[Rfam]
RNA sequence: UUGCCUUAAACUAAUGAGUAAGGAAAACAAAGCGAGCGGUGGGAGCCGGUUGCAGUGCCGAUGAUCUCCUCAUCGAAAGGUGGGGGGAGGGUGCGCAUGAAUUUAUGGAAGGGGAAUAGGCUGGCCGGGUGUUGACGCUGCUUACUUUCGCAGAACUCACUCGCGCGGGCCUCCCAC
Numbered sequence: 001u002u003g004c005c006u007u008a009a010a011c012u013a014a015u016g017a018g019u020a021a022g023g024a025a026a027a028c029a030a031a032g033c034g035a036g037c038g039g040u041g042g043g044a045g046c047c048g049g050u051u052g053c054a055g056u057g058c059c060g061a062u063g064a065u066c067u068c069c070u071c072a073u074c075g076a077a078a079g080g081u082g083g084g085g086g087g088a089g090g091g092u093g094c095g096c097a098u099g100a101a102u103u104u105a106u107g108g109a110a111g112g113g114g115a116a117u118a119g120g121c122u123g124g125c126c127g128g129g130u131g132u133u134g135a136c137g138c139u140g141c142u143u144a145c146u147u148u149c150g151c152a153g154a155a156c157u158c159a160c161u162c163g164c165g166c167g168g169g170c171c172u173c174c175c176a177c
Stems, first nucleotide, its partner, number of pairs: 004023005032053004037048003055096004111177001113175002118172005124166001126163002129160003138153004